[Rfam]
RNA: Ciliate telomerase RNA
RNA sequence: AGAUACCUCCUGUGGAUCCAUUCAGGAUUAAUGAAAUCCUGUCAUUCAACCCCAAAAAUCUUGUCAAAUUAUUGCCUCGUCUUUUGGGCACAAACAAAAGUCACGCAGGAGGUUCAGACAUUCGACAUAAGAUACACUAUUUAUCUUAUGGAAGGUCUAGUUUUU
Numbered sequence: 001a002g003a004u005a006c007c008u009c010c011u012g013u014g015g016a017u018c019c020a021u022u023c024a025g026g027a028u029u030a031a032u033g034a035a036a037u038c039c040u041g042u043c044a045u046u047c048a049a050c051c052c053c054a055a056a057a058a059u060c061u062u063g064u065c066a067a068a069u070u071a072u073u074g075c076c077u078c079g080u081c082u083u084u085u086g087g088g089c090a091c092a093a094a095c096a097a098a099a100g101u102c103a104c105g106c107a108g109g110a111g112g113u114u115c116a117g118a119c120a121u122u123c124g125a126c127a128u129a130a131g132a133u134a135c136a137c138u139a140u141u142u143a144u145c146u147u148a149u150g151g152a153a154g155g156u157c158u159a160g161u162u163u164u165u
Stems, first nucleotide, its partner, number of pairs: 006112005014104001023041007073090001075087002081100002084097002116158004121153003126150002130146005